[Rfam]
RNA: Mason-Pfizer monkey virus packaging signal
RNA sequence: UGGCACCCAACGUAGAGCUCCUGGCAUGGAGGAUUCAAUGGGGGACCCAUUUGGAGAUGCCAGCCGAAAGUGAAACUAAAGAUCUGAGGCCUACGCUAUGCAGGAGCAUGCUGUGCCGCUCAAGCUUUGGUAAGUGAACAGUGAUCCCUUCCCCCUUUCCCAGCAUGGGUCAAGCAUUGAGUGACCACGAACUUUUUGUGGGAGGCCUAAGUAAGGCAUUAAAGACAAGAGGGAUUAAGGCUAAAGAAAAAGAUUUAUUACAAUAUUUUCAAUUUAUUCAUACGGUUUG
Numbered sequence: 001u002g003g004c005a006c007c008c009a010a011c012g013u014a015g016a017g018c019u020c021c022u023g024g025c026a027u028g029g030a031g032g033a034u035u036c037a038a039u040g041g042g043g044g045a046c047c048c049a050u051u052u053g054g055a056g057a058u059g060c061c062a063g064c065c066g067a068a069a070g071u072g073a074a075a076c077u078a079a080a081g082a083u084c085u086g087a088g089g090c091c092u093a094c095g096c097u098a099u100g101c102a103g104g105a106g107c108a109u110g111c112u113g114u115g116c117c118g119c120u121c122a123a124g125c126u127u128u129g130g131u132a133a134g135u136g137a138a139c140a141g142u143g144a145u146c147c148c149u150u151c152c153c154c155c156u157u158u159c160c161c162a163g164c165a166u167g168g169g170u171c172a173a174g175c176a177u178u179g180a181g182u183g184a185c186c187a188c189g190a191a192c193u194u195u196u197u198g199u200g201g202g203a204g205g206c207c208u209a210a211g212u213a214a215g216g217c218a219u220u221a222a223a224g225a226c227a228a229g230a231g232g233g234a235u236u237a238a239g240g241c242u243a244a245a246g247a248a249a250a251a252g253a254u255u256u257a258u259u260a261c262a263a264u265a266u267u268u269u270c271a272a273u274u275u276a277u278u279c280a281u282a283c284g285g286u287u288u289g
Stems, first nucleotide, its partner, number of pairs: 006032002012027002037051004084134002089131002095126001096124002099115005142172003146169003178221003181217002229269004234264002238256003242252001
Dot-bracket structure: .....((....((............))...))....((((.......))))................................((...((....(((.(((((.......))))).......)).)...)).)).......(((.(((..................)))))).....(((((.................................)).))).......((((.((..(((.(.........).)))......)).))))....................